mir-8834 microRNA precursor family: a 104-nucleotide sequence from Canis lupus.
RNA sequence: AGGAGAAACAGCAGUGGCGGCAGCCAGCUCUGGAGCCCUAUAGUCAGCUCCCGCAGUAACUACAGAGCUCUCUGUCUGCAGGGGCCUGGAUGCUCCAUGGGUGG
Numbered sequence: 001a002g003g004a005g006a007a008a009c010a011g012c013a014g015u016g017g018c019g020g021c022a023g024c025c026a027g028c029u030c031u032g033g034a035g036c037c038c039u040a041u042a043g044u045c046a047g048c049u050c051c052c053g054c055a056g057u058a059a060c061u062a063c064a065g066a067g068c069u070c071u072c073u074g075u076c077u078g079c080a081g082g083g084g085c086c087u088g089g090a091u092g093c094u095c096c097a098u099g100g101g102u103g104g
Stems, first nucleotide, its partner, number of pairs: 002096004007091001009088003012084001016076005022071002026069007034061001038056002
The base pairs follow the family's consensus structure, which was predicted with RNAalifold.